[Rfam]
RNA sequence: GCGCUGGUGUAGCUCAGUGGUUACUUCUUCCUGAUUAAACUCUCUUGGCUGGGGGGAAACCAACAGCCUGAGAUCGAACCACGGGCACUGUCCAGCGUUUUG
Numbered sequence: 001g002c003g004c005u006g007g008u009g010u011a012g013c014u015c016a017g018u019g020g021u022u023a024c025u026u027c028u029u030c031c032u033g034a035u036u037a038a039a040c041u042c043u044c045u046u047g048g049c050u051g052g053g054g055g056g057a058a059a060c061c062a063a064c065a066g067c068c069u070g071a072g073a074u075c076g077a078a079c080c081a082c083g084g085g086c087a088c089u090g091u092c093c094a095g096c097g098u099u100u101u102g
Stems, first nucleotide, its partner, number of pairs: 002097006012086004017082004025078003